Overview: The record is a 350-nucleotide RNA sequence from Clostridium sp. CAG:715, which matches "Bacterial RNase P class A" in Rfam. It scores 229 bits against the family's covariance model. The family's RNA type in Rfam is ribozyme. Pairs were carried over by alignment from the consensus structure, which is taken from published work.
[Rfam]
RNA sequence: UAAAGUAACCGAACAAUCGCGCCUUGUUAACAAGGUGAGGAAAGUCCGUGCAUUCAAGGACAGGCAGCCGGAGAAACUCCGGACAGCGUGAGCUGGUGGAUAGGACCACAGAAAUGAAAACUGCCGAUGGGUAGAAAUACCACAGGCGAUGGUGCAACGGUGAGUUAAGAGCUUCACCAGCGAUAUCGAGAGAUAUCGGCUAGGCAACCCCCUGCCGAAUGCAAGAUUAAAUUGAGGGCUACAAAGGUGUCCGCCAACCUCUAAGAAUAUCGCUAGAGAUUGGGAGUAAUCCCAAUACCAGACAGAUGAUUGUUUAAAAACAGAACACGGCUUAUGAGUUACUUUAUUUU
Dot-bracket structure: (((((((((.((((((((.(((((((....)))))))....[[[.[[[[[((((........((((((((((.....)))))(((((....)))).)((...((.((.............(.(((..((((((....)))).)))))...).......((((((.......).))))).((((((((....))))))).)..))...))))))))).))))...(((.......((((.(.....(((....))).).))))......))).......(((((((....)))))))...........)))))))...........]]]]]]]].)..)))))))))....
Numbered sequence: 001u002a003a004a005g006u007a008a009c010c011g012a013a014c015a016a017u018c019g020c021g022c023c024u025u026g027u028u029a030a031c032a033a034g035g036u037g038a039g040g041a042a043a044g045u046c047c048g049u050g051c052a053u054u055c056a057a058g059g060a061c062a063g064g065c066a067g068c069c070g071g072a073g074a075a076a077c078u079c080c081g082g083a084c085a086g087c088g089u090g091a092g093c094u095g096g097u098g099g100a101u102a103g104g105a106c107c108a109c110a111g112a113a114a115u116g117a118a119a120a121c122u123g124c125c126g127a128u129g130g131g132u133a134g135a136a137a138u139a140c141c142a143c144a145g146g147c148g149a150u151g152g153u154g155c156a157a158c159g160g161u162g163a164g165u166u167a168a169g170a171g172c173u174u175c176a177c178c179a180g181c182g183a184u185a186u187c188g189a190g191a192g193a194u195a196u197c198g199g200c201u202a203g204g205c206a207a208c209c210c211c212c213u214g215c216c217g218a219a220u221g222c223a224a225g226a227u228u229a230a231a232u233u234g235a236g237g238g239c240u241a242c243a244a245a246g247g248u249g250u251c252c253g254c255c256a257a258c259c260u261c262u263a264a265g266a267a268u269a270u271c272g273c274u275a276g277a278g279a280u281u282g283g284g285a286g287u288a289a290u291c292c293c294a295a296u297a298c299c300a301g302a303c304a305g306a307u308g309a310u311u312g313u314u315u316a317a318a319a320a321c322a323g324a325a326c327a328c329g330g331c332u333u334a335u336g337a338g339u340u341a342c343u344u345u346a347u348u349u350u
Stems, first nucleotide, its partner, number of pairs: 001346009011335001012314007020037007042333003046330005051221004063216005068082005083097001084095004098211002103209002106204002121151001123147003128144002130141004159178005164172001180200001181198007225271003235262004240257001246255003279296007